The record is a 52-nucleotide RNA from Cnephaeus nilssonii, which matches "mir-1302 microRNA precursor family" in Rfam. The match comes from Rfam's covariance-model search (63 bits). NCBI's taxonomy places the organism under Eukaryota, Deuterostomia, Euteleostomi, Chiroptera, Cnephaeus.
[Rfam]
RNA sequence: UUUUUAGUAUAAGUAUGUUCCAUGCAAUAUUUGAGAUAUAUGUAUGCUAAAA
Dot-bracket structure: .....((((((..(((.((.((........).).)).)))..))))))....
Numbered sequence: 001u002u003u004u005u006a007g008u009a010u011a012a013g014u015a016u017g018u019u020c021c022a023u024g025c026a027a028u029a030u031u032u033g034a035g036a037u038a039u040a041u042g043u044a045u046g047c048u049a050a051a052a
Stems, first nucleotide, its partner, number of pairs: 006048006014040003018036002021033001022031001